[Rfam]
RNA sequence: CCGCCCUGCCUCGUGAUCGUCUUCUCACCUCUUCGCGGCGGCGGGCGGAAAAGGAGCCCCCGUGGGGAUGCGUCCCACGGGGGCUCUCC
Numbered sequence: 001c002c003g004c005c006c007u008g009c010c011u012c013g014u015g016a017u018c019g020u021c022u023u024c025u026c027a028c029c030u031c032u033u034c035g036c037g038g039c040g041g042c043g044g045g046c047g048g049a050a051a052a053g054g055a056g057c058c059c060c061c062g063u064g065g066g067g068a069u070g071c072g073u074c075c076c077a078c079g080g081g082g083g084c085u086c087u088c089c
Base pairs, nucleotide, nucleotide: 001048002047003046005045006044007043008042009041010040013036014035015034016033019029053087054086055085056084057083058082059081060080061079062078063077064076065075066074
A member of the RNA family "sodF sRNA", 89 nucleotides long.
Its family is annotated with regulation of mRNA stability, mRNA binding and negative regulation of translation in the Gene Ontology.
The match comes from Rfam's covariance-model search (63 bits).